[Rfam]
RNA sequence: UGCGAUGAGUCGAGUAAAAUCAGACAACUUCGGUUGUUCCGCUGCGGCGGCUAGUGAUUAGUUCGAAGAUGGGGCAUUUUUUACCUACCGCAUUGUAGGUAUGUCUGAUUGUCACUGUUUUGUGGAAUUC
Numbered sequence: 001u002g003c004g005a006u007g008a009g010u011c012g013a014g015u016a017a018a019a020u021c022a023g024a025c026a027a028c029u030u031c032g033g034u035u036g037u038u039c040c041g042c043u044g045c046g047g048c049g050g051c052u053a054g055u056g057a058u059u060a061g062u063u064c065g066a067a068g069a070u071g072g073g074g075c076a077u078u079u080u081u082u083a084c085c086u087a088c089c090g091c092a093u094u095g096u097a098g099g100u101a102u103g104u105c106u107g108a109u110u111g112u113c114a115c116u117g118u119u120u121u122g123u124g125g126a127a128u129u130c
Base pairs, nucleotide, nucleotide: 018059019058020057021056022055023038024037025036026035027034028033039050040049041048042047073105074104075103076102077101084099085098086097087096088095117130120127121126
RNA: Enterococcus sRNA 68 (Lacto-3 RNA)